[Rfam]
RNA sequence: UCAAUGUGAUGAUUACUGCAAAUCUGUCAAUCCACUGAUAAUUUAUUGAUUUUAUUUUUUGUCCCAACAGGUUCUGAUUGA
Numbered sequence: 001u002c003a004a005u006g007u008g009a010u011g012a013u014u015a016c017u018g019c020a021a022a023u024c025u026g027u028c029a030a031u032c033c034a035c036u037g038a039u040a041a042u043u044u045a046u047u048g049a050u051u052u053u054a055u056u057u058u059u060u061g062u063c064c065c066a067a068c069a070g071g072u073u074c075u076g077a078u079u080g081a
Stems, first nucleotide, its partner, number of pairs: 001081004
Dot-bracket structure: ((((.........................................................................))))
RNA: Small nucleolar RNA snoR14